[Rfam]
RNA: Plastid-atpF group II-D1 intron
RNA sequence: AAUUUUUUCUUUGAUAGAGAGCACUCAUGUCAAUGAAAUUAUUUGAAGCCUUU
Numbered sequence: 001a002a003u004u005u006u007u008u009c010u011u012u013g014a015u016a017g018a019g020a021g022c023a024c025u026c027a028u029g030u031c032a033a034u035g036a037a038a039u040u041a042u043u044u045g046a047a048g049c050c051u052u053u
Base pairs, nucleotide, nucleotide: 011033012032013031014030015029016028